[Rfam]
Rfam assigns this 101-nucleotide sequence from Salix dunnii to the family "MIR398 microRNA precursor family".
The base pairs follow the family's consensus structure, which was predicted with WAR.
It scores 84 bits against the family's covariance model.
On this family, see Jones-Rhoades and Bartel, Mol Cell 2004: "Computational identification of plant microRNAs and their targets, including a stress-induced miRNA".
Lineage of the source: Eukaryota > Streptophyta > Spermatophyta > Gunneridae > Salix.
Rfam 15.1 lists 627 matches to the family in 211 species.
RNA sequence: AGGAUUCCUACAGGAGCGACCUGAGAUCACAUGUGGGCGGCACCCUCCUGGGUUAUCUUAUUAGGCAACAUGUGUUCUCAGGUCGCCCCUGCCGGGCUUUC
Numbered sequence: 001a002g003g004a005u006u007c008c009u010a011c012a013g014g015a016g017c018g019a020c021c022u023g024a025g026a027u028c029a030c031a032u033g034u035g036g037g038c039g040g041c042a043c044c045c046u047c048c049u050g051g052g053u054u055a056u057c058u059u060a061u062u063a064g065g066c067a068a069c070a071u072g073u074g075u076u077c078u079c080a081g082g083u084c085g086c087c088c089c090u091g092c093c094g095g096g097c098u099u100u101c
Base pairs, nucleotide, nucleotide: 007095008094011091012090013089014088016086017085018084019083023079024078025077026076028074029073030072031071032070